[Rfam]
Rfam assigns this 68-nucleotide RNA from Bombyx mori to the family "mir-2774 microRNA precursor family". The base pairs follow the family's consensus structure, which was predicted with RNAalifold. On this family, see Liu et al., BMC Genomics 2010: "MicroRNAs of Bombyx mori identified by Solexa sequencing". A search with the family's covariance model found it, with a score of 62 bits. Gene Ontology terms of the family: miRNA-mediated post-transcriptional gene silencing and RISC complex.

RNA sequence: AACAUAUUAUGUACUGUCGGUCUACCGAGCAAAAUCACCCGCUCGGUGGAAGAUCUUUCCCAUAUCUC
Numbered sequence: 001a002a003c004a005u006a007u008u009a010u011g012u013a014c015u016g017u018c019g020g021u022c023u024a025c026c027g028a029g030c031a032a033a034a035u036c037a038c039c040c041g042c043u044c045g046g047u048g049g050a051a052g053a054u055c056u057u058u059c060c061c062a063u064a065u066c067u068c
Stems, first nucleotide, its partner, number of pairs: 004065003011059001013057001016054003021050010